Notes:
Rfam assigns this 171-nucleotide sequence from [Clostridium] aminophilum to the family "Group II catalytic intron D1-D4-3".

RNA sequence: UCCACCGUGAGGUGUGGGUCUGAAGGAAGCCCGAGGCAAAGCGCUGGCCUGACGAACAGGAAUCCCGAACAGGCUGUGAAGCGUGGAUGAGGCUGCCAAACAAGCCAAAGUCCAAAAACUGCACGGAACGCCAACAGUAGACGGGACAGGUAUAAGUGUGAAAGAACGUGU
Numbered sequence: 001u002c003c004a005c006c007g008u009g010a011g012g013u014g015u016g017g018g019u020c021u022g023a024a025g026g027a028a029g030c031c032c033g034a035g036g037c038a039a040a041g042c043g044c045u046g047g048c049c050u051g052a053c054g055a056a057c058a059g060g061a062a063u064c065c066c067g068a069a070c071a072g073g074c075u076g077u078g079a080a081g082c083g084u085g086g087a088u089g090a091g092g093c094u095g096c097c098a099a100a101c102a103a104g105c106c107a108a109a110g111u112c113c114a115a116a117a118a119c120u121g122c123a124c125g126g127a128a129c130g131c132c133a134a135c136a137g138u139a140g141a142c143g144g145g146a147c148a149g150g151u152a153u154a155a156g157u158g159u160g161a162a163a164g165a166a167c168g169u170g171u
Stems, first nucleotide, its partner, number of pairs: 001017002003014004031170001037164001041159005047151005063146005073138003077134001081131004085113004091106004

About the family: Group II introns are found in rRNA, tRNA and mRNA of organelles in fungi, plants and protists, and also in mRNA in bacteria. The match comes from Rfam's covariance-model search (123 bits). A reference for the family is Bonen and Vogel (2001), "The ins and outs of group II introns", Trends Genet. Pairs were carried over by alignment from the consensus structure. NCBI's taxonomy places the organism under Bacteria, Bacillati, Clostridia, Lachnospirales, Lachnoclostridium.